[Rfam]
The family of this 79-nucleotide RNA sequence from Alligator sinensis is "Mammalian CPEB3 ribozyme".
A search with the family's covariance model found it, with a score of 48 bits.
The family's consensus secondary structure is taken from published work.
The mammalian CPEB3 ribozyme is a self cleaving RNA located in the second intron of the CPEB3 gene which belongs to a family of genes regulating messenger RNA polyadenylation.

RNA sequence: AGAGGUCACAAUUUUGAGGCCAUAGAAGAAGCACUCAUGGUGCAGCCUGUCAGAUUCCAGUCAAUCUGAGAAUUCUGGU
Numbered sequence: 001a002g003a004g005g006u007c008a009c010a011a012u013u014u015u016g017a018g019g020c021c022a023u024a025g026a027a028g029a030a031g032c033a034c035u036c037a038u039g040g041u042g043c044a045g046c047c048u049g050u051c052a053g054a055u056u057c058c059a060g061u062c063a064a065u066c067u068g069a070g071a072a073u074u075c076u077g078g079u
Base pairs, nucleotide, nucleotide: 018047019046020045024079027076028075029074030073031043032042033041051068052067053066054065055064056063